[Rfam]
RNA sequence: CCGCGUAUCCAAGGCGAGGUGUGAUUCCUCGACCGGCGGUGAGCCCUGAGCCAUAGCUCAUGUGGUAAGCCCGCAACUCCCGUCAAAUCUUUAUCAAGGCGGGACUGACACGGUGAGAUCCCGUGGCCGACGGUAAAGUCCGGAUGGAAGGAGUUGUUU
Numbered sequence: 001c002c003g004c005g006u007a008u009c010c011a012a013g014g015c016g017a018g019g020u021g022u023g024a025u026u027c028c029u030c031g032a033c034c035g036g037c038g039g040u041g042a043g044c045c046c047u048g049a050g051c052c053a054u055a056g057c058u059c060a061u062g063u064g065g066u067a068a069g070c071c072c073g074c075a076a077c078u079c080c081c082g083u084c085a086a087a088u089c090u091u092u093a094u095c096a097a098g099g100c101g102g103g104a105c106u107g108a109c110a111c112g113g114u115g116a117g118a119u120c121c122c123g124u125g126g127c128c129g130a131c132g133g134u135a136a137a138g139u140c141c142g143g144a145u146g147g148a149a150g151g152a153g154u155u156g157u158u159u
Stems, first nucleotide, its partner, number of pairs: 003157003008152003017029003032139002034129002036074004069127002078104005109125005131142003
Source information: Rfam assigns this 159-nucleotide RNA from Ruminococcaceae bacterium KH2T8 to the family "FMN riboswitch aptamer (RFN element)". A search with the family's covariance model found it, with a score of 79 bits.